[Rfam]
RNA sequence: CACGUGCUCCGGGGUCGGUGUAAUUCCGAACCGGCGGUUAAAGUCCGCGACCCGUUAGUCCCCCAGCGCCAUCGAGGGACCAGCGGUUGAGCUGGUGAAACUCCAGCACCGACGGUCAAAGUCCGGACGGGAGGCGCACGAG
Numbered sequence: 001c002a003c004g005u006g007c008u009c010c011g012g013g014g015u016c017g018g019u020g021u022a023a024u025u026c027c028g029a030a031c032c033g034g035c036g037g038u039u040a041a042a043g044u045c046c047g048c049g050a051c052c053c054g055u056u057a058g059u060c061c062c063c064c065a066g067c068g069c070c071a072u073c074g075a076g077g078g079a080c081c082a083g084c085g086g087u088u089g090a091g092c093u094g095g096u097g098a099a100a101c102u103c104c105a106g107c108a109c110c111g112a113c114g115g116u117c118a119a120a121g122u123c124c125g126g127a128c129g130g131g132a133g134g135c136g137c138a139c140g141a142g
Stems, first nucleotide, its partner, number of pairs: 003140005009134002016028003030122002032111002034048004043109002052086005091107005113125003
The record is a 142-nucleotide RNA from Cryobacterium lyxosi, which matches "FMN riboswitch aptamer (RFN element)" in Rfam.
The source organism's lineage runs through Bacteria, Bacillati, Actinomycetota, Microbacteriaceae and Cryobacterium.